RNA sequence: UAAUGUAGACAGAAAAAGGGAAGCCCCGCUGGAACAGGACUUCCAAUGUAGAGCCGUUUAAGACGGUGGCAAACUUAAUAGAUUAGACU
Numbered sequence: 001u002a003a004u005g006u007a008g009a010c011a012g013a014a015a016a017a018g019g020g021a022a023g024c025c026c027c028g029c030u031g032g033a034a035c036a037g038g039a040c041u042u043c044c045a046a047u048g049u050a051g052a053g054c055c056g057u058u059u060a061a062g063a064c065g066g067u068g069g070c071a072a073a074c075u076u077a078a079u080a081g082a083u084u085a086g087a088c089u
Stems, first nucleotide, its partner, number of pairs: 025038002028035001053067006
Shown here is an 89-nucleotide RNA from Lentilactobacillus hilgardii, a member of the family "RNA anti-toxin A". By type it is an antitoxin RNA. A reference for the family is Fozo et al. (2010), "Abundance of type I toxin-antitoxin systems in bacteria: searches for new candidates and discovery of novel families", Nucleic Acids Res. The organism belongs to Lentilactobacillus hilgardii, within Bacteria.